Shown here is a 105-nucleotide sequence from Halalkalibacter krulwichiae, a member of the family "SAM riboswitch aptamer (S box leader)". Rfam 15.1 lists 9,625 matches to the family in 4,158 species. The organism belongs to Halalkalibacter, within Bacteria. From the family's description: The SAM riboswitch is found upstream of a number of genes which code for proteins involved in methionine or cysteine biosynthesis in Gram-positive bacteria. The SAM riboswitch acts at the level of transcription termination control. The predicted structure consists of a complex stem-loop region followed by a single stem loop terminator region. An alternative and mutually exclusive form involves bases in the 3' segment of helix 1 with those in the 5' region of helix 5 to form a structure termed the anti-terminator form. The match comes from Rfam's covariance-model search (94 bits).
[Rfam]
RNA sequence: UUCUUAUCAAGAGAGACGGAGGGGAUGGCCCGAAGAAGUCUCAGCAACCAGCCAAGUUUGGUCAGGUGCUAAUUCCAUCAAGUCAUGAGACUUGAAAGAUAAGAA
Numbered sequence: 001u002u003c004u005u006a007u008c009a010a011g012a013g014a015g016a017c018g019g020a021g022g023g024g025a026u027g028g029c030c031c032g033a034a035g036a037a038g039u040c041u042c043a044g045c046a047a048c049c050a051g052c053c054a055a056g057u058u059u060g061g062u063c064a065g066g067u068g069c070u071a072a073u074u075c076c077a078u079c080a081a082g083u084c085a086u087g088a089g090a091c092u093u094g095a096a097a098g099a100u101a102a103g104a105a
Base pairs, nucleotide, nucleotide: 001105002104003103004102005101006100007099008098013042014041015040016039017038021031022030023029025078026077027076028075043070044069045068046067048066049065050062052060074097079094080093081092082091083090084089